[Rfam]
RNA sequence: CCAUCAUCACCAUCAUCCUGACUAGUCUGACAGGCCGAUGUGUGCUGGAAGACGGUUAACCAAUCUUCCAGGUGGCGUAGAACGCAUAAAGAGAGCCCUCGGAAGAUAAUCUUCCGAGGGCUUUUUUGU
Numbered sequence: 001c002c003a004u005c006a007u008c009a010c011c012a013u014c015a016u017c018c019u020g021a022c023u024a025g026u027c028u029g030a031c032a033g034g035c036c037g038a039u040g041u042g043u044g045c046u047g048g049a050a051g052a053c054g055g056u057u058a059a060c061c062a063a064u065c066u067u068c069c070a071g072g073u074g075g076c077g078u079a080g081a082a083c084g085c086a087u088a089a090a091g092a093g094a095g096c097c098c099u100c101g102g103a104a105g106a107u108a109a110u111c112u113u114c115c116g117a118g119g120g121c122u123u124u125u126u127u128g129u
Base pairs, nucleotide, nucleotide: 008044009043010042011040012039013038014037017034018033019032020031045071046070047069048068049067050066051065052064090126091125092124093123094122095121096120097119098118099117100116101115102114103113104112105111